mir-6 microRNA precursor family: a 95-nucleotide RNA from Drosophila willistoni. The match comes from Rfam's covariance-model search (75 bits). Rfam's curators write: This family consists of the microRNA (miRNA) precursor mir-6 which appears to be Drosophila specific. Animal miRNAs are transcribed as ~70nt precursors and subsequently processed by the Dicer enzyme to give a ~22nt product. For this family Rfam cites "miRNPs: a novel class of ribonucleoproteins containing numerous microRNAs" (Mourelatos et al., Genes Dev, 2002). The source organism's lineage runs through Eukaryota, Hexapoda, Aparaglossata, Panorpida and Sophophora.
RNA sequence: AACCGCAGGGAACUGUCGCUGCUGAUAUAUAUAUAUUAUUGUUAUAUAUAAUUUAAAAAUGAUUUUCUAUAUCACAGUGGCUGUUCUUUUUGGUU
Numbered sequence: 001a002a003c004c005g006c007a008g009g010g011a012a013c014u015g016u017c018g019c020u021g022c023u024g025a026u027a028u029a030u031a032u033a034u035a036u037u038a039u040u041g042u043u044a045u046a047u048a049u050a051a052u053u054u055a056a057a058a059a060u061g062a063u064u065u066u067c068u069a070u071a072u073c074a075c076a077g078u079g080g081c082u083g084u085u086c087u088u089u090u091u092g093g094u095u
Stems, first nucleotide, its partner, number of pairs: 004092002007089007016080006023074002026071004